Shown here is a 94-nucleotide sequence from Sorghum bicolor, a member of the family "MIR5387 microRNA precursor family". The organism belongs to Sorghum, within Eukaryota.
RNA sequence: UUGUAAUACGAACCGGUGCUAAAGGGUCUCUGCCCCGACAGCACCUGUCAGUAGCCGUUGGGCAGGACCCUUUAGCAUCGGUUCGUGUUACUAA
Numbered sequence: 001u002u003g004u005a006a007u008a009c010g011a012a013c014c015g016g017u018g019c020u021a022a023a024g025g026g027u028c029u030c031u032g033c034c035c036c037g038a039c040a041g042c043a044c045c046u047g048u049c050a051g052u053a054g055c056c057g058u059u060g061g062g063c064a065g066g067a068c069c070c071u072u073u074a075g076c077a078u079c080g081g082u083u084c085g086u087g088u089u090a091c092u093a094a
Stems, first nucleotide, its partner, number of pairs: 003091025029066002034062003038058002045051002